[Rfam]
RNA: mir-981 microRNA precursor family
RNA sequence: CUACAUUGAACUCAGGUUUCGUUAGCAGCGGGCUGUAAUUAUUAAAAGAACAAGUUCGUUGUCGACGAAACCUGCAUGCUAUGUGG
Numbered sequence: 001c002u003a004c005a006u007u008g009a010a011c012u013c014a015g016g017u018u019u020c021g022u023u024a025g026c027a028g029c030g031g032g033c034u035g036u037a038a039u040u041a042u043u044a045a046a047a048g049a050a051c052a053a054g055u056u057c058g059u060u061g062u063c064g065a066c067g068a069a070a071c072c073u074g075c076a077u078g079c080u081a082u083g084u085g086g
Stems, first nucleotide, its partner, number of pairs: 001086006013074009030057005